Shown here is a 49-nucleotide sequence, a member of the family "ssNA-helicase RNA". Rfam's curators put it in the seed alignment. The family's consensus secondary structure is taken from published work.
RNA sequence: GUCCAUAAGGGUAAGUAUUACCCUUAUGGACAUCAAGUAGCAUGUAUCA
Numbered sequence: 001g002u003c004c005a006u007a008a009g010g011g012u013a014a015g016u017a018u019u020a021c022c023c024u025u026a027u028g029g030a031c032a033u034c035a036a037g038u039a040g041c042a043u044g045u046a047u048c049a
Stems, first nucleotide, its partner, number of pairs: 001031011